The family of this 109-nucleotide RNA from Streptococcus sp. DD12 is "Streptococcus sRNA 10".
A reference for the family is Tesorero et al. (2013), "Novel regulatory small RNAs in Streptococcus pyogenes", PLoS One.
By type it is a small RNA.
The organism belongs to Streptococcus, within Bacteria.
The family's consensus secondary structure was predicted with RNAfold.
It scores 69 bits against the family's covariance model.
RNA sequence: AAUAAGGGAGUAGCCGACGGAAAUAUCCGUGGCAAGGUCGUCAAUCCGAAAGCAAUUUCCGGCCUUGUCUUAAACAGCGAGACUUGUUUCUAAAAACAGGUCUCUUUUU
Numbered sequence: 001a002a003u004a005a006g007g008g009a010g011u012a013g014c015c016g017a018c019g020g021a022a023a024u025a026u027c028c029g030u031g032g033c034a035a036g037g038u039c040g041u042c043a044a045u046c047c048g049a050a051a052g053c054a055a056u057u058u059c060c061g062g063c064c065u066u067g068u069c070u071u072a073a074a075c076a077g078c079g080a081g082a083c084u085u086g087u088u089u090c091u092a093a094a095a096a097c098a099g100g101u102c103u104c105u106u107u108u109u
Stems, first nucleotide, its partner, number of pairs: 005030001007028002011025002014020001031069010043058002048053001079104011